RNA sequence: AGCAUGUGCGGAUGUAUUUUUUGAACCAGAGGACAAGACUUAAAGACAGGUGUGAAAAUAAAUCCUCUUUUGCAAUGUAGAACUCAUUGUUCAGUCUGAGUUUUGAUGCAUGUAGGAAGGGAUAUG
Numbered sequence: 001a002g003c004a005u006g007u008g009c010g011g012a013u014g015u016a017u018u019u020u021u022u023g024a025a026c027c028a029g030a031g032g033a034c035a036a037g038a039c040u041u042a043a044a045g046a047c048a049g050g051u052g053u054g055a056a057a058a059u060a061a062a063u064c065c066u067c068u069u070u071u072g073c074a075a076u077g078u079a080g081a082a083c084u085c086a087u088u089g090u091u092c093a094g095u096c097u098g099a100g101u102u103u104u105g106a107u108g109c110a111u112g113u114a115g116g117a118a119g120g121g122a123u124a125u126g
Stems, first nucleotide, its partner, number of pairs: 002053004007048002014039002017037003021033001026031001062123005068117005078105009
Small nucleolar RNA SNORA40: a 126-nucleotide RNA sequence from Nannospalax galili. The snoRNA ACA 40 belongs to the H/ACA family of snoRNAs and guides the pseudouridylation of 28S rRNA subunit at position U4565. NB This family has a high threshold value to exclude a large number of closely related sequences that do not appear to have conserved H and ACA boxes, and may be pseudogenes. The family's consensus secondary structure was predicted with RNAalifold. The family's RNA type in Rfam is H/ACA-box small nucleolar RNA. A reference for the family is Ofengand and Bakin (1997), "Mapping to nucleotide resolution of pseudouridine residues in large subunit ribosomal RNAs from representative eukaryotes, prokaryotes, archaebacteria, mitochondria and chloroplasts", J Mol Biol.